[Rfam]
RNA: Small nucleolar RNA SNORD22
Organism: Synaphobranchus kaupii
RNA sequence: UCCCUAUGAUGAAACCCGCACGCGUCUUACGCCCUGUGUUGGCACCAGAACCUGAAAAGGUGAACCCACUGGUGCUGCCAGGGCGACAAGGGGAUGAACUGUUGGGGUGUCCAACUGUCUGAUGGGAC
Number, nucleotide and partner (000 for none) at each position: 001u127002c126003c125004c124005u000006a000007u000008g000009a000010u000011g000012a000013a000014a000015c000016c000017c000018g000019c000020a000021c000022g000023c000024g000025u000026c000027u000028u000029a000030c000031g000032c000033c000034c000035u000036g000037u000038g000039u000040u000041g000042g000043c000044a000045c000046c000047a000048g000049a000050a000051c000052c000053u000054g000055a000056a000057a000058a000059g000060g000061u000062g000063a000064a000065c000066c000067c000068a000069c000070u000071g000072g000073u000074g000075c000076u000077g000078c000079c000080a000081g000082g000083g000084c000085g000086a000087c000088a000089a000090g000091g000092g000093g000094a000095u000096g000097a000098a000099c000100u000101g000102u000103u000104g000105g000106g000107g000108u000109g000110u000111c000112c000113a000114a000115c000116u000117g000118u000119c000120u000121g000122a000123u000124g004125g003126g002127a001128c000